[Rfam]
RNA sequence: UCGACCACAUCUCCUUAUCACUUUUCCAGCCCAGCUAUCCAUUUAGUAUCCGUUGGACGGAGAACUGAUAAGGGCAUGUGCCCGA
Numbered sequence: 001u002c003g004a005c006c007a008c009a010u011c012u013c014c015u016u017a018u019c020a021c022u023u024u025u026c027c028a029g030c031c032c033a034g035c036u037a038u039c040c041a042u043u044u045a046g047u048a049u050c051c052g053u054u055g056g057a058c059g060g061a062g063a064a065c066u067g068a069u070a071a072g073g074g075c076a077u078g079u080g081c082c083c084g085a
Base pairs, nucleotide, nucleotide: 012074013073014072015071016070017069018068019067020066022064023063024062025061026060027059030056031055
RNA: mir-184 microRNA precursor family